[Rfam]
Rfam assigns this 544-nucleotide part of an RNA from Schizosaccharomyces pombe to the family "Eukaryotic small subunit ribosomal RNA".

RNA sequence: CAGUUAAAAAGCUCGUAGUUGAACUUUGAGCCUGGUCGACUGGUCCGCCGCAAGGCGUGUUUACUGGUCAUGACCGGGGUCGUUAACCUUCUGGCAAACUACUCAUGUUCUUUAUUGAGCGUGGUAGGGAACCAGGACUUUUACCUUGAAAAAAUUAGAGUGUUCAAAGCAGGCAAGUUUUGCUCGAAUACAUUAGCAUGGAAUAAUAAAAUAGGACGUGUGGUUCUAUUUUGUUGGUUUCUAGGACCGCCGUAAUGAUUAAUAGGGAUAGUCGGGGGCAUUCGUAUUCAAUUGUCAGAGGUGAAAUUCUUGGAUUUAUUGAAGACGAACUACUGCGAAAGCAUUUGCCAAGGAUGUUUUCAUUAAUCAAGAACGAAAGUUAGGGGAUCGAAGACGAUCAGAUACCGUCGUAGUCUUAACCAUAAACUAUGCCGACUAGGGAUCGGGCAAUGUUUCAUUUAUCGACUUGCUCGGCACCUUACGAGAAAUCAAAGUCUUUGGGUUCCGGGGGGAGUAUGGUCGCAAGGCUGAAACUUAAAGGAAU
Dot-bracket structure: (.(.....(.(.((...(((....................................................................................................................................................................................................................................................((((((.((...((((..((..((((((.(...(((......)))......).))))))..)).......((....))...))))..)).)).))))...)))...)).)....((((((....(...((((.........))))...).))))))..........((((((.(((..((((((((.(((.........)))))))))))..)))...((....))...)))....))))).).(((......((((....))))....)))........

Gene Ontology terms of the family: ribosome and structural constituent of ribosome. For this family Rfam cites "Crystal structure of the ribosome at 5.5 A resolution" (Yusupov et al., Science, 2001). The source organism's lineage runs through Eukaryota, Opisthokonta, Taphrinomycotina, Schizosaccharomycetaceae and Schizosaccharomyces. Rfam 15.1 lists 75,755 matches to the family in 2,556 species. The base pairs follow the family's consensus structure, which is taken from published work.